[Rfam]
RNA: U2 spliceosomal RNA
Organism: Heterostelium album
RNA sequence: AUCACUUCUCAAAGCAAUUUGCUUUGAUCAUGUGUAGUAUCUGUUCUAGAAAGCUUAAUCUCUUUCUGCGGUCACACGUUGACUGCUUAAUUGAUUAAACUAAUUUAUCUAGAGGGACCGAAACAUUAUGAUAUGGGCUUGCUCAUAUCGUUUCAGUCAUGUAUUUGCUCUGUAUUGCACAAAAUCAGAGAUUCAAAGGUACACCUCAU
Numbered sequence: 001a002u003c004a005c006u007u008c009u010c011a012a013a014g015c016a017a018u019u020u021g022c023u024u025u026g027a028u029c030a031u032g033u034g035u036a037g038u039a040u041c042u043g044u045u046c047u048a049g050a051a052a053g054c055u056u057a058a059u060c061u062c063u064u065u066c067u068g069c070g071g072u073c074a075c076a077c078g079u080u081g082a083c084u085g086c087u088u089a090a091u092u093g094a095u096u097a098a099a100c101u102a103a104u105u106u107a108u109c110u111a112g113a114g115g116g117a118c119c120g121a122a123a124c125a126u127u128a129u130g131a132u133a134u135g136g137g138c139u140u141g142c143u144c145a146u147a148u149c150g151u152u153u154c155a156g157u158c159a160u161g162u163a164u165u166u167g168c169u170c171u172g173u174a175u176u177g178c179a180c181a182a183a184a185u186c187a188g189a190g191a192u193u194c195a196a197a198g199g200u201a202c203a204c205c206u207c208a209u
Base pairs, nucleotide, nucleotide: 009027010026011025013023014022015021016020048067049066050065051064052063053062069085070084071083072082073081074080116158117157118156120154121153122152123151134145135144136143137142161202162201163200164199165198166197168190169189170188171187172186